[Rfam]
RNA sequence: GGAAUAUAAGAACCCGACUCUUAACUUUUAACUGAAAAAGUUAAGAGUCGGCUCUUAAAUCUCUUAUGUAACAGUCGAUUCUUAGCAUUUAAAAAUUAAGAGUCGGGUUCUUAUAUUCU
Number, nucleotide and partner (000 for none) at each position: 001g119002g118003a117004a116005u115006a114007u113008a112009a111010g110011a109012a108013c107014c106015c105016g104017a103018c102019u101020c100021u099022u098023a097024a096025c000026u094027u093028u092029u091030a090031a089032c000033u000034g000035a000036a000037a000038a000039a000040g000041u085042u084043a083044a082045g081046a080047g079048u000049c000050g000051g000052c000053u000054c000055u000056u000057a000058a000059a000060u000061c000062u000063c000064u000065u000066a000067u000068g000069u000070a000071a000072c000073a000074g000075u000076c000077g000078a000079u047080u046081c045082u044083u043084a042085g041086c000087a000088u000089u031090u030091a029092a028093a027094a026095a000096u024097u023098a022099a021100g020101a019102g018103u017104c016105g015106g014107g013108u012109u011110c010111u009112u008113a007114u006115a005116u004117u003118c002119u001

The record is a 119-nucleotide RNA sequence from Brassica napus, which matches "MIR9563 microRNA precursor family" in Rfam. It scores 90 bits against the family's covariance model. NCBI's taxonomy places the organism under Eukaryota, Viridiplantae, Spermatophyta, Brassiceae, Brassica. Rfam 15.1 lists 5,832 matches to the family in 9 species.